[Rfam]
RNA sequence: ACAGAGUAAAAAUAUGUGCGUUAAGUGCCUUUAACACGGGGAGUUGGUUAAGGAACGAAAAGUUAUUCUUGCGGUACAUAUUUUGCAUCCCGCUGU
Numbered sequence: 001a002c003a004g005a006g007u008a009a010a011a012a013u014a015u016g017u018g019c020g021u022u023a024a025g026u027g028c029c030u031u032u033a034a035c036a037c038g039g040g041g042a043g044u045u046g047g048u049u050a051a052g053g054a055a056c057g058a059a060a061a062g063u064u065a066u067u068c069u070u071g072c073g074g075u076a077c078a079u080a081u082u083u084u085g086c087a088u089c090c091c092g093c094u095g096u
Stems, first nucleotide, its partner, number of pairs: 001096004009084010019073003025056002029053007039090003043086001060070003